[Rfam]
RNA sequence: CCAACGCGGACACCCUGUGAGUUGACCCUCAUAUGGCUCUGUCUGUGUGGCGUAUGGGAGCGUAGCACAUUAGUGCCAUGACGUACAGUCCCGUUCCACGACGUUGGAGAGUAAGCAUGUCCCCGGCGUUUGGCUGGUGAGGACUGCGUCCUGUAUAUUCCUAGAUCUUCCCAGAGCCUUUGGGCCAUUACUGGGGAGGUAAACCAUGCAGUGCACAUUA
Numbered sequence: 001c002c003a004a005c006g007c008g009g010a011c012a013c014c015c016u017g018u019g020a021g022u023u024g025a026c027c028c029u030c031a032u033a034u035g036g037c038u039c040u041g042u043c044u045g046u047g048u049g050g051c052g053u054a055u056g057g058g059a060g061c062g063u064a065g066c067a068c069a070u071u072a073g074u075g076c077c078a079u080g081a082c083g084u085a086c087a088g089u090c091c092c093g094u095u096c097c098a099c100g101a102c103g104u105u106g107g108a109g110a111g112u113a114a115g116c117a118u119g120u121c122c123c124c125g126g127c128g129u130u131u132g133g134c135u136g137g138u139g140a141g142g143a144c145u146g147c148g149u150c151c152u153g154u155a156u157a158u159u160c161c162u163a164g165a166u167c168u169u170c171c172c173a174g175a176g177c178c179u180u181u182g183g184g185c186c187a188u189u190a191c192u193g194g195g196g197a198g199g200u201a202a203a204c205c206a207u208g209c210a211g212u213g214c215a216c217a218u219u220a
Stems, first nucleotide, its partner, number of pairs: 001107006008044005014036002018031004047099004056092004060086001062084002065079001151211006167198006176185003